[Rfam]
The family of this 109-nucleotide RNA from Diploscapter pachys is "SL2 RNA".
The family is grouped with related families in Rfam's "SL clan".
This family represents SL2 RNA. SL2 RNA is involved in trans splicing in lower eukaryotes. Trans-splicing is a form of RNA processing. The acquisition of a spliced leader from a SL RNA is a intra-molecular reaction which precisely joins exons derived from separately transcribed RNAs. Approximately 25% of C. elegans genes are organised into polycistronic transcription units and the presence of SL2 on an mRNA is an indication the the gene is in an operon.
By type it is a non-coding RNA gene.
RNA sequence: GUUUUUAACCUAGUUACUCAAGGUAAAUCUUGGGAUUCGAUCAAGUCUCGACUUGUGUCGAAUAAAACACUUUUUGGAACCAACCUUUCUGGGGACAUCCGGAAGGGAA
Dot-bracket structure: ......((((..(.(((.....)))...)..))..))(((((((((....))))).)))).......................((((((..((.....)).))))))..